This 470-nucleotide part of an RNA from Jiangella asiatica belongs to the Rfam family "Bacterial large subunit ribosomal RNA". The source organism's lineage runs through Bacteria, Bacillati, Actinomycetota, Jiangellales and Jiangella. The base pairs follow the family's consensus structure, which is taken from published work. A search with the family's covariance model found it, with a score of 2767 bits.
[Rfam]
RNA sequence: GAAAGACGGGUGAGAAACCCGUCCGCCGAAUGACCAAGGGUUCCAGGGCCAGGUUAAUCCGCCCUGGGUAAGUCGGGACCUAAGGCGAGGCCGACAGGCGUAGUCGAUGGACAACGGGUUGAUAUUCCCGUACCGGUUGUGGCGCGCCCAUGCCGAGCCCGGUGAUGCUAACCAUCCGAACCUGUGGUUCUCCUUCGGGAGGGCUGACGGGGGAGCGUGGGAACCGAUCCGGUAGUAGGCAAGCGAUGGGGUGACGCAGGAAGGUAGCCCAUCCCGGGCGAUGGUUGUCCCGGGGUAACAGUGUGGGGCCGUGGUAGGUAAAUCCGCCACAGUAGUGCCCGAGGCUGGAUGCCGAGCCGAUUGCGGCGAAGUGGGUGAUCCUAUGCUGUCGAGAAAAGCCUCUAGCGAGCUCCAUAGCCGCCCGUACCCCAAACCGACACAGGUGGUCAGGUAGAGAAUACCAAGGCGAU
Numbered sequence: 001g002a003a004a005g006a007c008g009g010g011u012g013a014g015a016a017a018c019c020c021g022u023c024c025g026c027c028g029a030a031u032g033a034c035c036a037a038g039g040g041u042u043c044c045a046g047g048g049c050c051a052g053g054u055u056a057a058u059c060c061g062c063c064c065u066g067g068g069u070a071a072g073u074c075g076g077g078a079c080c081u082a083a084g085g086c087g088a089g090g091c092c093g094a095c096a097g098g099c100g101u102a103g104u105c106g107a108u109g110g111a112c113a114a115c116g117g118g119u120u121g122a123u124a125u126u127c128c129c130g131u132a133c134c135g136g137u138u139g140u141g142g143c144g145c146g147c148c149c150a151u152g153c154c155g156a157g158c159c160c161g162g163u164g165a166u167g168c169u170a171a172c173c174a175u176c177c178g179a180a181c182c183u184g185u186g187g188u189u190c191u192c193c194u195u196c197g198g199g200a201g202g203g204c205u206g207a208c209g210g211g212g213g214a215g216c217g218u219g220g221g222a223a224c225c226g227a228u229c230c231g232g233u234a235g236u237a238g239g240c241a242a243g244c245g246a247u248g249g250g251g252u253g254a255c256g257c258a259g260g261a262a263g264g265u266a267g268c269c270c271a272u273c274c275c276g277g278g279c280g281a282u283g284g285u286u287g288u289c290c291c292g293g294g295g296u297a298a299c300a301g302u303g304u305g306g307g308g309c310c311g312u313g314g315u316a317g318g319u320a321a322a323u324c325c326g327c328c329a330c331a332g333u334a335g336u337g338c339c340c341g342a343g344g345c346u347g348g349a350u351g352c353c354g355a356g357c358c359g360a361u362u363g364c365g366g367c368g369a370a371g372u373g374g375g376u377g378a379u380c381c382u383a384u385g386c387u388g389u390c391g392a393g394a395a396a397a398g399c400c401u402c403u404a405g406c407g408a409g410c411u412c413c414a415u416a417g418c419c420g421c422c423c424g425u426a427c428c429c430c431a432a433a434c435c436g437a438c439a440c441a442g443g444u445g446g447u448c449a450g451g452u453a454g455a456g457a458a459u460a461c462c463a464a465g466g467c468g469a470u
Base pairs, nucleotide, nucleotide: 005023006022007021008020009019010018024468025467026466027465032448033447034446035445038428039427043067044066045065046064047063048062052060053059074424075423076422077421079110080109084105085104086103088101090099091098092097114131115130116129117128118127134420135419136418137417138416139415140414141413142412144410243406244405248402249401250400251399252398256389257388258387259386262382263381264380267376268375269374270373271372273294274293275292276291277290278289295352296351299347300346301345302344306340307339308338309332311330312329313328314327315326317325318324356367357366358365359364434443435442450462451461452460453459